RNA sequence: CCGUGCUAGGUGGGGAAUUAGCGGUGCCCUGUAACUUGCAAUCCGCUCUAGCAAGACUGAAGUCCUUUUAGAGGCUAUUCGUAUUGUAAAGUCUGCCUCUUGCACGCAGUGUUGACAUUUGGGUCCUGCGCAAUGAAAACCCAUGAACCAUGUCAGGUCCGGAAGGAAGCAGCAUUAAGUGGACUCUUUCAUGUGCCGUGGGGUCGCCUGAAUCGAGCUAGCGACAAGAGUAACGUUUAUGUGCGGUAGUCGACUUAAGGUGCACGG
Numbered sequence: 001c002c003g004u005g006c007u008a009g010g011u012g013g014g015g016a017a018u019u020a021g022c023g024g025u026g027c028c029c030u031g032u033a034a035c036u037u038g039c040a041a042u043c044c045g046c047u048c049u050a051g052c053a054a055g056a057c058u059g060a061a062g063u064c065c066u067u068u069u070a071g072a073g074g075c076u077a078u079u080c081g082u083a084u085u086g087u088a089a090a091g092u093c094u095g096c097c098u099c100u101u102g103c104a105c106g107c108a109g110u111g112u113u114g115a116c117a118u119u120u121g122g123g124u125c126c127u128g129c130g131c132a133a134u135g136a137a138a139a140c141c142c143a144u145g146a147a148c149c150a151u152g153u154c155a156g157g158u159c160c161g162g163a164a165g166g167a168a169g170c171a172g173c174a175u176u177a178a179g180u181g182g183a184c185u186c187u188u189u190c191a192u193g194u195g196c197c198g199u200g201g202g203g204u205c206g207c208c209u210g211a212a213u214c215g216a217g218c219u220a221g222c223g224a225c226a227a228g229a230g231u232a233a234c235g236u237u238u239a240u241g242u243g244c245g246g247u248a249g250u251c252g253a254c255u256u257a258a259g260g261u262g263c264a265c266g267g
Stems, first nucleotide, its partner, number of pairs: 001267006009058003012030004017025003035055005064260004073251005080245005086240005094232002098229005106222002108219003117213008125202006131193002134191005141182004150175004158167003